The family of this 233-nucleotide RNA from Trifolium subterraneum is "MIR2655 microRNA precursor family".
RNA sequence: UCCUUAUCUUUUAAAAGUUUCAAGUUGGUCCCUUAUUUUUAUUUUAGGUUUCAAGUUGGUCCCUUCAAUCAAUUUUUUUAACUAUUUCCGUUAAAUUUGGACACGUGGCACACUUGGACAGAUGACACGUGUCCAAAUUUAACGGUAACAGUAAAAAAAAUUGAUGGAAGGGACCAACUUGGAACCUAAAAAAAAGAUAAGGGACCAACUUGAAACUUUUAAAAGAUAAGAGA
Numbered sequence: 001u002c003c004u005u006a007u008c009u010u011u012u013a014a015a016a017g018u019u020u021c022a023a024g025u026u027g028g029u030c031c032c033u034u035a036u037u038u039u040u041a042u043u044u045u046a047g048g049u050u051u052c053a054a055g056u057u058g059g060u061c062c063c064u065u066c067a068a069u070c071a072a073u074u075u076u077u078u079u080a081a082c083u084a085u086u087u088c089c090g091u092u093a094a095a096u097u098u099g100g101a102c103a104c105g106u107g108g109c110a111c112a113c114u115u116g117g118a119c120a121g122a123u124g125a126c127a128c129g130u131g132u133c134c135a136a137a138u139u140u141a142a143c144g145g146u147a148a149c150a151g152u153a154a155a156a157a158a159a160a161u162u163g164a165u166g167g168a169a170g171g172g173a174c175c176a177a178c179u180u181g182g183a184a185c186c187u188a189a190a191a192a193a194a195a196g197a198u199a200a201g202g203g204a205c206c207a208a209c210u211u212g213a214a215a216c217u218u219u220u221a222a223a224a225g226a227u228a229a230g231a232g233a
Base pairs, nucleotide, nucleotide: 003230004229005228006227007226008225023210024209025208027206028205029204031202032201033200034199035198036197037196038195039194040193042191043190045188046187047186
Taxonomically the source falls in Trifolium (Eukaryota, Streptophyta, Gunneridae, Fabales).
Its family is annotated with miRNA-mediated post-transcriptional gene silencing and RISC complex in the Gene Ontology.
The match comes from Rfam's covariance-model search (128 bits).
Rfam 15.1 lists 892 matches to the family in 5 species.